The family of this 137-nucleotide RNA sequence from Nyctereutes procyonoides is "Small nucleolar RNA SNORA70".
RNA sequence: UAACAGUCUAUCUCAAGAAUAUUAAGGUGCUCGCUCCAUGGGGGCCCAGUGUGCCAUGGCUGCAAACAGUAGCCUCCUUGGUAGUGUAUGCAGCCUGUUGAUCGUAUGGGUUGCCCUAAGGGACCUUGGAGACAGCC
Numbered sequence: 001u002a003a004c005a006g007u008c009u010a011u012c013u014c015a016a017g018a019a020u021a022u023u024a025a026g027g028u029g030c031u032c033g034c035u036c037c038a039u040g041g042g043g044g045c046c047c048a049g050u051g052u053g054c055c056a057u058g059g060c061u062g063c064a065a066a067c068a069g070u071a072g073c074c075u076c077c078u079u080g081g082u083a084g085u086g087u088a089u090g091c092a093g094c095c096u097g098u099u100g101a102u103c104g105u106a107u108g109g110g111u112u113g114c115c116c117u118a119a120g121g122g123a124c125c126u127u128g129g130a131g132a133c134a135g136c137c
Stems, first nucleotide, its partner, number of pairs: 004053002021050003028043001030041001080125003091113006
snoRNA U70 seems to be exclusive to mammals and is a member of the H/ACA class of snoRNA which contain H (ANANNA) and ACA box motifs. H/ACA box snoRNAs are involved in the conversion of uridines to pseudouridines (5-ribosyluracil) a constituent of structural RNAs (transfer, ribosomal, small nuclear, and small nucleolar). The source organism's lineage runs through Eukaryota, Opisthokonta, Chordata, Dipnotetrapodomorpha and Nyctereutes. The base pairs follow the family's consensus structure, which was predicted with PFOLD. Gene Ontology terms of the family: RNA processing and nucleolus.